[Rfam]
RNA sequence: UCCUUAUCUUUUAAAAGUUUCAAGUUGGUCCCUUAUCUUUAUUUUAUGAUUCAAGUUGGUCCCUUCCGCCAAUUUUUUAACCAUUUCCGUUAAAUUUGGACACAUGGCAAACUAAUUUGGACACGUGGCACACUUGGACAGAUUACACGUGUCCAAAUUUAACGGCAACAUUAAAAAAAUUGACGGAAGGGACCAACUUGAAACCUAAAAAAAAGAUAACGGAUCAACUUGAAACUUUUAAAAGAUAAGGGA
Number, nucleotide and partner (000 for none) at each position: 001u000002c250003c249004u248005u247006a246007u245008c244009u000010u000011u000012u000013a000014a000015a000016a000017g000018u000019u000020u000021c000022a000023a229024g228025u227026u000027g225028g224029u223030c000031c221032c000033u219034u218035a217036u216037c215038u214039u213040u212041a000042u210043u209044u000045u207046a206047u000048g000049a000050u000051u000052c000053a000054a000055g000056u000057u000058g000059g000060u000061c000062c000063c000064u000065u000066c000067c000068g000069c000070c000071a000072a000073u000074u000075u000076u000077u000078u000079a000080a000081c000082c000083a000084u000085u000086u000087c000088c000089g000090u000091u000092a000093a000094a000095u000096u000097u000098g000099g000100a000101c000102a000103c000104a000105u000106g000107g000108c000109a000110a000111a000112c000113u000114a000115a000116u000117u000118u000119g000120g000121a000122c000123a000124c000125g000126u000127g000128g000129c000130a000131c000132a000133c000134u000135u000136g000137g000138a000139c000140a000141g000142a000143u000144u000145a000146c000147a000148c000149g000150u000151g000152u000153c000154c000155a000156a000157a000158u000159u000160u000161a000162a000163c000164g000165g000166c000167a000168a000169c000170a000171u000172u000173a000174a000175a000176a000177a000178a000179a000180u000181u000182g000183a000184c000185g000186g000187a000188a000189g000190g000191g000192a000193c000194c000195a000196a000197c000198u000199u000200g000201a000202a000203a000204c000205c000206u046207a045208a000209a043210a042211a000212a040213a039214a038215g037216a036217u035218a034219a033220c000221g031222g000223a029224u028225c027226a000227a025228c024229u023230u000231g000232a000233a000234a000235c000236u000237u000238u000239u000240a000241a000242a000243a000244g008245a007246u006247a005248a004249g003250g002251g000252a000

The family of this 252-nucleotide sequence from Trifolium subterraneum is "MIR2655 microRNA precursor family". The match comes from Rfam's covariance-model search (124 bits). The family's consensus secondary structure was predicted with RNAalifold. Gene Ontology terms of the family: RISC complex and miRNA-mediated post-transcriptional gene silencing. The family has 25 seed sequences and 892 matches in Rfam 15.1.